[Rfam]
RNA sequence: CGUGGACGUGUUGUAUUUUGUGGGUCAAAAGCCUAUGAAGCAACGGCGGCACGCGGACACAGACUAAAAAAUAACUUUCACGAUUAUGAAAAUAAACAUGCAAAGUUGUCGCCAAGAAUUGAUGAUAGAACCGUAAUGCUCAACGGGUAACCGAAUUGAGCCAGUCCAAGACUCGCAAGGUUGAGGGUUGUUGUGGGAAAGUCGCACGUUUGGGGUCGAACCCUUAACUGCUCGCAAGGCAGGCGGUAGAUAGAACCAUGAGUAAUCAAUUCUUAUAGUGGAAAUGCCACCACUCAAAACAAGGCCGGUUCGGUUGAUUCGUCCAUGAGGACGAGGAUAAGGGUAGAACGUCUUACUAGCACUAGGACGAUAAUGACCCGAAAGGCAACCUUCAAAUGCUUUAAUCUCAAGCA
Numbered sequence: 001c002g003u004g005g006a007c008g009u010g011u012u013g014u015a016u017u018u019u020g021u022g023g024g025u026c027a028a029a030a031g032c033c034u035a036u037g038a039a040g041c042a043a044c045g046g047c048g049g050c051a052c053g054c055g056g057a058c059a060c061a062g063a064c065u066a067a068a069a070a071a072u073a074a075c076u077u078u079c080a081c082g083a084u085u086a087u088g089a090a091a092a093u094a095a096a097c098a099u100g101c102a103a104a105g106u107u108g109u110c111g112c113c114a115a116g117a118a119u120u121g122a123u124g125a126u127a128g129a130a131c132c133g134u135a136a137u138g139c140u141c142a143a144c145g146g147g148u149a150a151c152c153g154a155a156u157u158g159a160g161c162c163a164g165u166c167c168a169a170g171a172c173u174c175g176c177a178a179g180g181u182u183g184a185g186g187g188u189u190g191u192u193g194u195g196g197g198a199a200a201g202u203c204g205c206a207c208g209u210u211u212g213g214g215g216u217c218g219a220a221c222c223c224u225u226a227a228c229u230g231c232u233c234g235c236a237a238g239g240c241a242g243g244c245g246g247u248a249g250a251u252a253g254a255a256c257c258a259u260g261a262g263u264a265a266u267c268a269a270u271u272c273u274u275a276u277a278g279u280g281g282a283a284a285u286g287c288c289a290c291c292a293c294u295c296a297a298a299a300c301a302a303g304g305c306c307g308g309u310u311c312g313g314u315u316g317a318u319u320c321g322u323c324c325a326u327g328a329g330g331a332c333g334a335g336g337a338u339a340a341g342g343g344u345a346g347a348a349c350g351u352c353u354u355a356c357u358a359g360c361a362c363u364a365g366g367a368c369g370a371u372a373a374u375g376a377c378c379c380g381a382a383a384g385g386c387a388a389c390c391u392u393c394a395a396a397u398g399c400u401u402u403a404a405u406c407u408c409a410a411g412c413a
Stems, first nucleotide, its partner, number of pairs: 002060003007055003010044005017039009045113007100176002114274010129310005138161006144153003162190005170182004193259004202246004212224004228242005286305003312390005318335007336406003341379004346374001398412003
Dot-bracket structure: .[[[..[[[(((((..(((((((((.....))))))))))))))(((((((.]]]..]]].......................................{{.....)))))))((((((((((.....[[[[[....(((((((((....)))..))))))(((((...((((.}}..))))...)))))..((((.....((((......((((.....))))...(((((.....))))))))).........)))).....))))))))))...........(((..............)))]]]]].(((((.(((((((....)))))))[[[..((((.(...........................).))))......))))).......(((...]]]...))).

A member of the RNA family "Giant, ornate, lake- and Lactobacillales-derived (GOLLD) RNA", 413 nucleotides long. On this family, see Weinberg et al., Nature 2009: "Exceptional structured noncoding RNAs revealed by bacterial metagenome analysis". It is one of the family's seed sequences. Rfam classes the family as a non-coding RNA gene.